[Rfam]
Rfam assigns this 90-nucleotide sequence from Dentiscutata erythropus to the family "Insect-specific Flavivirus 3' UTR cis-acting replication element (CRE)".
Rfam classes the family as a cis-regulatory element.
The organism belongs to Dentiscutata, within Eukaryota.
The base pairs follow the family's consensus structure, which was predicted with LocARNA.
From the family's description: Flavi_ISFV_CRE is a Insect specific Flavivirus family. Flavivirus 3' UTR cis-acting replication element (CRE) plays a crucial role in the virus replication and is thought to be needed for the formation of a 'replication complex', it is composed of a small hairpin (sHP) and a larger structural element (3'SL).

RNA sequence: CUCACGAUGUAGUGAUUCAAUCUUGAUAAUUUUAAUACCAUUCGAAUCCUCACAGUGAGAGGAUUUGAAUAGUAUCAAAAUUAUCAAGAU
Numbered sequence: 001c002u003c004a005c006g007a008u009g010u011a012g013u014g015a016u017u018c019a020a021u022c023u024u025g026a027u028a029a030u031u032u033u034a035a036u037a038c039c040a041u042u043c044g045a046a047u048c049c050u051c052a053c054a055g056u057g058a059g060a061g062g063a064u065u066u067g068a069a070u071a072g073u074a075u076c077a078a079a080a081u082u083a084u085c086a087a088g089a090u
Base pairs, nucleotide, nucleotide: 020090021089022088023087025085026084027083028082030080031079032078033077035075036074037073042069043067044066045065046064047063048062049061050060051059
The literature on the family includes a 2013 paper in J Virol by Villordo and Gamarnik, "Differential RNA sequence requirement for dengue virus replication in mosquito and mammalian cells".